This 52-nucleotide sequence from Faunimonas pinastri belongs to the Rfam family "serC leader".
[Rfam]
Nucleotides: 052
Stems, first nucleotide, its partner, number of pairs: 011028006032047006
Number, partner (000 for none) and nucleotide at each position: 001000c002000g003000g004000c005000g006000g007000g008000a009000c010000a011028c012027c013026c014025u015024u016023c017000c018000c019000c020000a021000c022000c023016g024015a025014a026013g027012g028011g029000c030000g031000c032047c033046u034045a035044u036043c037042u038000g039000a040000a041000a042037g043036g044035a045034u046033a047032g048000c049000a050000g051000a052000u
It scores 72 bits against the family's covariance model.
It is annotated as a cis-regulatory leader.
Lineage of the source: Bacteria > Pseudomonadota > Hyphomicrobiales > Afifellaceae > Faunimonas.
Its family is annotated with regulation of gene expression in the Gene Ontology.